[Rfam]
Shown here is a 173-nucleotide RNA sequence from Turicibacter sp. H121, a member of the family "Lysine riboswitch aptamer". Gene Ontology term of the family: lysine biosynthetic process. Lineage of the source: Bacteria > Bacillota > Erysipelotrichia > Erysipelotrichales > Turicibacter. Pairs were carried over by alignment from the consensus structure, which is taken from published work. The match comes from Rfam's covariance-model search (112 bits). Riboswitches are metabolite binding domains within certain messenger RNAs that serve as precision sensors for their corresponding targets.
RNA sequence: UGAUGAGUUAGAGGUGCGUGUCCAAUGAGUAGGAAUUUCGAGAGUGACGUCGAUGACAAAUUCUAAAAGGUGUCCACGCCGAAGUCUUGUUUGUGUCAACCAAACUUGUGCUGGUGUUAUGUUGAAUAAAUUUAACACUGUCACUACAAUUGUAGUGGAGGACUAAUGAUCGG
Numbered sequence: 001u002g003a004u005g006a007g008u009u010a011g012a013g014g015u016g017c018g019u020g021u022c023c024a025a026u027g028a029g030u031a032g033g034a035a036u037u038u039c040g041a042g043a044g045u046g047a048c049g050u051c052g053a054u055g056a057c058a059a060a061u062u063c064u065a066a067a068a069g070g071u072g073u074c075c076a077c078g079c080c081g082a083a084g085u086c087u088u089g090u091u092u093g094u095g096u097c098a099a100c101c102a103a104a105c106u107u108g109u110g111c112u113g114g115u116g117u118u119a120u121g122u123u124g125a126a127u128a129a130a131u132u133u134a135a136c137a138c139u140g141u142c143a144c145u146a147c148a149a150u151u152g153u154a155g156u157g158g159a160g161g162a163c164u165a166a167u168g169a170u171c172g173g
Base pairs, nucleotide, nucleotide: 007167008166009165010164011163016079017078018077019076020075023072024071032064033063034062035061036060037059038058083112084111085110086108089105090104091103092102093101113139114138115137116136117135118134119133121131122130123129141158142157143156144155145154146153147152